Shown here is a 72-nucleotide sequence from Pongo pygmaeus, a member of the family "mir-875 microRNA precursor family".
RNA sequence: UAGUGGUACUAUACCUCAGUUUUAUCAGGUGUUCUUAAAAUCACCUGGAAAUACUGAGGUUGUGUCUCACUG
Dot-bracket structure: ..((((.((...((((((((.((.(((((((..........))))))).)).))))))))...)).))))..